[Rfam]
RNA sequence: CGUGAACUGGUGGGGUCCCUUGGCCUGGCCUGUGCCCUUUUGCAAUCUGGAACCCCUCGGGGGAUGUCUGCAGGCCAGGCCGAGGGACCCCACCAGCGCACG
Numbered sequence: 001c002g003u004g005a006a007c008u009g010g011u012g013g014g015g016u017c018c019c020u021u022g023g024c025c026u027g028g029c030c031u032g033u034g035c036c037c038u039u040u041u042g043c044a045a046u047c048u049g050g051a052a053c054c055c056c057u058c059g060g061g062g063g064a065u066g067u068c069u070g071c072a073g074g075c076c077a078g079g080c081c082g083a084g085g086g087a088c089c090c091c092a093c094c095a096g097c098g099c100a101c102g
Stems, first nucleotide, its partner, number of pairs: 003100002008095003012091014027076008
This 102-nucleotide RNA from Cnephaeus nilssonii belongs to the Rfam family "mir-9193 microRNA precursor family". The base pairs follow the family's consensus structure, which was predicted with RNAalifold. Its family is annotated with miRNA-mediated post-transcriptional gene silencing and RISC complex in the Gene Ontology.